[Rfam]
RNA sequence: AAAUUGCCCGGAUCGACACCGCGGGUCACCACCAGGUAGUCGCGAAGCGCGAUGCUGUGCCGCCCUUC
Numbered sequence: 001a002a003a004u005u006g007c008c009c010g011g012a013u014c015g016a017c018a019c020c021g022c023g024g025g026u027c028a029c030c031a032c033c034a035g036g037u038a039g040u041c042g043c044g045a046a047g048c049g050c051g052a053u054g055c056u057g058u059g060c061c062g063c064c065c066u067u068c
Stems, first nucleotide, its partner, number of pairs: 005062002008059001011030001013028001015027003035056004040052005
Dot-bracket structure: ....((.(..(.(.(((.......)))).)....((((.(((((...)))))))))..).))......